[Rfam]
RNA sequence: CAGUUAAAAAGCUCGUAGUUGGACCUUGGGUUGGGUCGAUCGGUCCGCCUCCGGUGUGCACCGGUCGGCUCGUCCCUUCUACCGGCGAUGCGCUCCUGGCCUUAACUGGCCGGGUCGUGCCUCCGGUGCUGUUACUUUGAAGAAAUUAGAGUGCUCAAAGCAAGCCUACGCUCUGAAUAUAUUAGCAUGGGAUAACAUCAUAGGAUUUUGGUCCUAUUCUGUUGGCCUUCGGGAUCGGAGUAAUGAUUAACAGGGACAGUCGGGGGCAUUCGUAUUUCAUAGUCAGAGGUGAAAUUCUUGGAUUUAUGAAAGACAAACAACUGCGAAAGCAUUUGCCAAGGAUGUUUUCAUUAAUCAAGAACGAAAGUUGGGGACUCGAAGACGAUCAGAUACCGUCCUAGUCUCAACCAUAAACGAUGCCGACCAGGGAUUGGCGGAUGUUGCUUAUAGGACUCCGCCAGCACCUUAUGAGAAAUCGCAGUUUUUGGGUUCCGGGGGGAGUAUGGUCGCAAGUCUGAAACUUAAAGGAAU
Numbered sequence: 001c002a003g004u005u006a007a008a009a010a011g012c013u014c015g016u017a018g019u020u021g022g023a024c025c026u027u028g029g030g031u032u033g034g035g036u037c038g039a040u041c042g043g044u045c046c047g048c049c050u051c052c053g054g055u056g057u058g059c060a061c062c063g064g065u066c067g068g069c070u071c072g073u074c075c076c077u078u079c080u081a082c083c084g085g086c087g088a089u090g091c092g093c094u095c096c097u098g099g100c101c102u103u104a105a106c107u108g109g110c111c112g113g114g115u116c117g118u119g120c121c122u123c124c125g126g127u128g129c130u131g132u133u134a135c136u137u138u139g140a141a142g143a144a145a146u147u148a149g150a151g152u153g154c155u156c157a158a159a160g161c162a163a164g165c166c167u168a169c170g171c172u173c174u175g176a177a178u179a180u181a182u183u184a185g186c187a188u189g190g191g192a193u194a195a196c197a198u199c200a201u202a203g204g205a206u207u208u209u210g211g212u213c214c215u216a217u218u219c220u221g222u223u224g225g226c227c228u229u230c231g232g233g234a235u236c237g238g239a240g241u242a243a244u245g246a247u248u249a250a251c252a253g254g255g256a257c258a259g260u261c262g263g264g265g266g267c268a269u270u271c272g273u274a275u276u277u278c279a280u281a282g283u284c285a286g287a288g289g290u291g292a293a294a295u296u297c298u299u300g301g302a303u304u305u306a307u308g309a310a311a312g313a314c315a316a317a318c319a320a321c322u323g324c325g326a327a328a329g330c331a332u333u334u335g336c337c338a339a340g341g342a343u344g345u346u347u348u349c350a351u352u353a354a355u356c357a358a359g360a361a362c363g364a365a366a367g368u369u370g371g372g373g374a375c376u377c378g379a380a381g382a383c384g385a386u387c388a389g390a391u392a393c394c395g396u397c398c399u400a401g402u403c404u405c406a407a408c409c410a411u412a413a414a415c416g417a418u419g420c421c422g423a424c425c426a427g428g429g430a431u432u433g434g435c436g437g438a439u440g441u442u443g444c445u446u447a448u449a450g451g452a453c454u455c456c457g458c459c460a461g462c463a464c465c466u467u468a469u470g471a472g473a474a475a476u477c478g479c480a481g482u483u484u485u486u487g488g489g490u491u492c493c494g495g496g497g498g499g500a501g502u503a504u505g506g507u508c509g510c511a512a513g514u515c516u517g518a519a520a521c522u523u524a525a526a527g528g529a530a531u
Base pairs, nucleotide, nucleotide: 001494003492009491011362013360014359018355019354020353253349254348255347256346257344258343260341261340265337266336267335268334272314275311276310277309278308279307280306281305282304286297287296288295323330324329367408368407369406370405371404372403377401381397382396383395384394419490420489421488422483423482424481426466427465428464431461432460433459434458435457436456437455438454440453441452442451470477471476496523497522498521505516506515508513
Source information:
Shown here is a 531-nucleotide part of an RNA from Trema orientale, a member of the family "Eukaryotic small subunit ribosomal RNA". On this family, see Yusupov et al., Science 2001: "Crystal structure of the ribosome at 5.5 A resolution". NCBI's taxonomy places the organism under Eukaryota, eudicotyledons, rosids, Cannabaceae, Trema.